[Rfam]
RNA sequence: AAUUGAAAUUUAUGAUCUGCUUAUCUGAAUAUGUUAGUGCAGAAACACUUAAAAAGCUGGCAGUGUAAAGCAAUGUUACAAACCUUAAGAACUUUGAAGUCAUUAAGGUCCCUGAAAAUGGCUAUAACA
Numbered sequence: 001a002a003u004u005g006a007a008a009u010u011u012a013u014g015a016u017c018u019g020c021u022u023a024u025c026u027g028a029a030u031a032u033g034u035u036a037g038u039g040c041a042g043a044a045a046c047a048c049u050u051a052a053a054a055a056g057c058u059g060g061c062a063g064u065g066u067a068a069a070g071c072a073a074u075g076u077u078a079c080a081a082a083c084c085u086u087a088a089g090a091a092c093u094u095u096g097a098a099g100u101c102a103u104u105a106a107g108g109u110c111c112c113u114g115a116a117a118a119u120g121g122c123u124a125u126a127a128c129a
Base pairs, nucleotide, nucleotide: 004060006058016043017042018041019040020039070122071121073119082109083108084107085106086105087104088103091100092099
The family of this 129-nucleotide RNA from Carlito syrichta is "Small nucleolar RNA SNORA33". ACA33 is a member of the H/ACA class of snoRNA that guide the sites of modification of uridines to pseudouridines. The family's RNA type in Rfam is H/ACA-box small nucleolar RNA. The family has 28 seed sequences and 1,176 matches in Rfam 15.1. Gene Ontology terms of the family: RNA processing and nucleolus. NCBI's taxonomy places the organism under Eukaryota, Opisthokonta, Boreoeutheria, Tarsiidae, Carlito.